Shown here is a 431-nucleotide part of an RNA, a member of the family "Eukaryotic large subunit ribosomal RNA".
Rfam's curators put it in the seed alignment.
The base pairs follow the family's consensus structure, which is taken from published work.

RNA sequence: CGACCUCAGAUCAGACGAGAUUACCCGCUGAAUUUAAGCAUAUAAGUAAGCGGAGGAAAAGAAACCAACAGGGAUUCCCCUAGUAACGGCGAGCGAACGGGGAAGAGUCCAGCGCCGAAUCCCGCGUUCCUCUGGACGUAGGGAAAUGUGGCGUUAGGGAGGUCGGUCUUCCGUGAUGCAGAGGAGGGUGCAAGUCCCCCUGACCGGGGCUCUGGCCCAGAGCGGGUGCAAGGCCCUUAGCAGCCCUCGUUGUAAGCGGAUUCGACCUCUCGAGAGUCGGGUUGUUUGGGAGUACAGCCCUAAGCAGGUGGUAAACUCCACCUAAGACUAAAUACUGCCGUGAGACCGAUAGCAAACAAGUACCGUGAGGGAAAGUUGAAAAGAACUUUGAAGAGAGAGUUCAAGAGUACGUGAAACCGCUUCGAGGUAAA
Dot-bracket structure: .......................((((((.....((....))......))))).).........((....))...(((((......(.....).....)))))..((((...(((((.((((((((((......))))).))))..).)))))....((.((((.(..(.......(((((.((.((.((...(.((((......))))).......(...)..((.......)).....)).)).)).))))).....)..))))).))........(((((((........))))))).....(((((........)))))..)))).................................((....))...............((((....))))..................................
The family is grouped with related families in Rfam's "LSU clan".